[Rfam]
Rfam assigns this 75-nucleotide sequence from Hibiscus syriacus to the family "Plastid-ycf2 5UTR RNA".
RNA sequence: GUGCAUCCAGUAGGAAUUGAACCUACGGAUUCAUCAAUUAUGGGUAAGGUGCUUUAACCAUUCAACCAGUGAUGC
Number, nucleotide and partner (000 for none) at each position: 001g000002u000003g075004c074005a073006u072007c071008c000009a000010g026011u025012a024013g023014g022015a000016a000017u000018u000019g000020a000021a000022c014023c013024u012025a011026c010027g000028g000029a000030u000031u000032c000033a000034u000035c000036a000037a000038u000039u000040a000041u068042g067043g000044g066045u065046a000047a000048g062049g061050u060051g059052c000053u000054u000055u000056a000057a000058c000059c051060a050061u049062u048063c000064a000065a045066c044067c042068a041069g000070u000071g007072a006073u005074g004075c003
It is annotated as a cis-regulatory element. Taxonomically the source falls in Hibiscus (Eukaryota, Streptophytina, eudicotyledons, Pentapetalae). Rfam 15.1 lists 3,521 matches to the family in 417 species. On this family, see Richter et al., Plant Commun 2023: "Retrograde signaling in plants: A critical review focusing on the GUN pathway and beyond". From the family's description: Plastid ycf2 is a non-coding RNA (ncRNA) recognised in plastids.